[Rfam]
This 84-nucleotide RNA from Macaca mulatta belongs to the Rfam family "mir-188 microRNA precursor family". It is one of the family's seed sequences. Pairs were carried over by alignment from the consensus structure, which was predicted with RNAalifold. Gene Ontology terms of the family: miRNA-mediated post-transcriptional gene silencing and RISC complex. For this family Rfam cites "Discovering microRNAs from deep sequencing data using miRDeep" (Friedlander et al., Nat Biotechnol, 2008). NCBI's taxonomy places the organism under Eukaryota, Eumetazoa, Catarrhini, Cercopithecidae, Macaca.
RNA sequence: GCUCCCUCUCUCACAUCCCUUGCAUGGUGGAGGGUGAGCUUUAUGAAAACCCCUCCCACAUGCAGGGUUUGCAGGAUGGUGAGC
Numbered sequence: 001g002c003u004c005c006c007u008c009u010c011u012c013a014c015a016u017c018c019c020u021u022g023c024a025u026g027g028u029g030g031a032g033g034g035u036g037a038g039c040u041u042u043a044u045g046a047a048a049a050c051c052c053c054u055c056c057c058a059c060a061u062g063c064a065g066g067g068u069u070u071g072c073a074g075g076a077u078g079g080u081g082a083g084c
Stems, first nucleotide, its partner, number of pairs: 001084004005079002009076003014071002018067009029056006